The family of this 313-nucleotide sequence from Puccinia triticina is "Group I catalytic intron". A search with the family's covariance model found it, with a score of 71 bits. The family's consensus secondary structure is taken from published work. From the family's description: Group I catalytic introns are large self-splicing ribozymes. They catalyse their own excision from mRNA, tRNA and rRNA precursors in a wide range of organisms. The core secondary structure consists of 9 paired regions (P1-P9). A reference for the family is Cate et al. (1996), "Crystal structure of a group I ribozyme domain: principles of RNA packing", Science. Gene Ontology term of the family: Group I intron splicing.

RNA sequence: AUAUUAUUAUAGAGGGAAAUCUGUCUCAUAAGUAAGUUAUUACUUAAUGAUAAUUCGGUGAAUUGCAAAAAUAAGUUGUUUUUAUCAACUCAAUUUGCAGCCAAGUUUACUUUUGUACCUGCACCUUUCGACAAAAGCUUCUAUAGGUUAAAGCCAAAAUAAAGAGUAUUGAAAGGAUGCGGAUGAAGUGAGAAGGUUCAACGACUAACAGGUGAGCAGUACAAGCAAUAAACCUGACACGAGCGCCUAACAGCCAGCCAGAUAGAGUAAAGGCAGGUAGAUGACAUAGUCUAAACUUAUAGGUGACUAUAAG
Numbered sequence: 001a002u003a004u005u006a007u008u009a010u011a012g013a014g015g016g017a018a019a020u021c022u023g024u025c026u027c028a029u030a031a032g033u034a035a036g037u038u039a040u041u042a043c044u045u046a047a048u049g050a051u052a053a054u055u056c057g058g059u060g061a062a063u064u065g066c067a068a069a070a071a072u073a074a075g076u077u078g079u080u081u082u083u084a085u086c087a088a089c090u091c092a093a094u095u096u097g098c099a100g101c102c103a104a105g106u107u108u109a110c111u112u113u114u115g116u117a118c119c120u121g122c123a124c125c126u127u128u129c130g131a132c133a134a135a136a137g138c139u140u141c142u143a144u145a146g147g148u149u150a151a152a153g154c155c156a157a158a159a160u161a162a163a164g165a166g167u168a169u170u171g172a173a174a175g176g177a178u179g180c181g182g183a184u185g186a187a188g189u190g191a192g193a194a195g196g197u198u199c200a201a202c203g204a205c206u207a208a209c210a211g212g213u214g215a216g217c218a219g220u221a222c223a224a225g226c227a228a229u230a231a232a233c234c235u236g237a238c239a240c241g242a243g244c245g246c247c248u249a250a251c252a253g254c255c256a257g258c259c260a261g262a263u264a265g266a267g268u269a270a271a272g273g274c275a276g277g278u279a280g281a282u283g284a285c286a287u288a289g290u291c292u293a294a295a296c297u298u299a300u301a302g303g304u305g306a307c308u309a310u311a312a313g
Stems, first nucleotide, its partner, number of pairs: 001020002004017002007014002054250002057247001059245002064099006074090005100197002106191002201292001203291005253278003257274003298311005